Rfam assigns this 47-nucleotide sequence from Longibaculum muris to the family "PreQ1 (pre queuosine) riboswitch aptamer".
RNA sequence: AUGACACUGGUUCGAGAGCCAAACCCAGUAUAAAAAACUAAGGACAU
Numbered sequence: 001a002u003g004a005c006a007c008u009g010g011u012u013c014g015a016g017a018g019c020c021a022a023a024c025c026c027a028g029u030a031u032a033a034a035a036a037a038c039u040a041a042g043g044a045c046a047u
Stems, first nucleotide, its partner, number of pairs: 006029005016039001
Background
The literature on the family includes a 2004 paper in J Biol Chem by Reader et al., "Identification of four genes necessary for biosynthesis of the modified nucleoside queuosine". This family is a bacterial riboswitch that binds to the metabolite preQ1, an intermediate in the biosynthesis of the modified nucleoside queuosine from GTP. One example of this riboswitch is located in the leader of the Bacillus subtilis ykvJKLM (queCDEF) operon which encodes four genes necessary for queuosine production. PreQ1 binding to the riboswitch aptamer is thought to induce premature transcription termination within the leader to down-regulate expression of these genes.